[Rfam]
RNA sequence: GUCAACUCCCCCUCCUGAAUCAAAGAUUCAGAAAGGGCCUAUAAGAGCCCAAGUUGACCAGCCUGAGUCUUAACUGACUACGUUCGGCGGGAUGUAGAUAUCUUUGGAUGUAAUCGCCAGACCAAAGCGCUAUCGUGGCUCUGUAAAAGCGCUGUGAGGUAGGAGCGGUCAACCACAUUGCGAAACCUGCUGGACAUUGGCGAGGCGAACCUUAC
Numbered sequence: 001g002u003c004a005a006c007u008c009c010c011c012c013u014c015c016u017g018a019a020u021c022a023a024a025g026a027u028u029c030a031g032a033a034a035g036g037g038c039c040u041a042u043a044a045g046a047g048c049c050c051a052a053g054u055u056g057a058c059c060a061g062c063c064u065g066a067g068u069c070u071u072a073a074c075u076g077a078c079u080a081c082g083u084u085c086g087g088c089g090g091g092a093u094g095u096a097g098a099u100a101u102c103u104u105u106g107g108a109u110g111u112a113a114u115c116g117c118c119a120g121a122c123c124a125a126a127g128c129g130c131u132a133u134c135g136u137g138g139c140u141c142u143g144u145a146a147a148a149g150c151g152c153u154g155u156g157a158g159g160u161a162g163g164a165g166c167g168g169u170c171a172a173c174c175a176c177a178u179u180g181c182g183a184a185a186c187c188u189g190c191u192g193g194a195c196a197u198u199g200g201c202g203a204g205g206c207g208a209a210c211c212u213u214a215c
Stems, first nucleotide, its partner, number of pairs: 001058007010037002013033001015031006038047001040045001061201003065197001066079004082195010098133002102127006109120001110211001114208005135176004142171002147169001149166002152163002
This 215-nucleotide sequence from Desulfocicer vacuolatum belongs to the Rfam family "HNH endonuclease-associated RNA and ORF (HEARO) RNA". Lineage of the source: Bacteria > Thermodesulfobacteriota > Desulfobacteraceae > Desulfocicer > Desulfocicer vacuolatum. The match comes from Rfam's covariance-model search (97 bits). A reference for the family is Weinberg et al. (2009), "Exceptional structured noncoding RNAs revealed by bacterial metagenome analysis", Nature.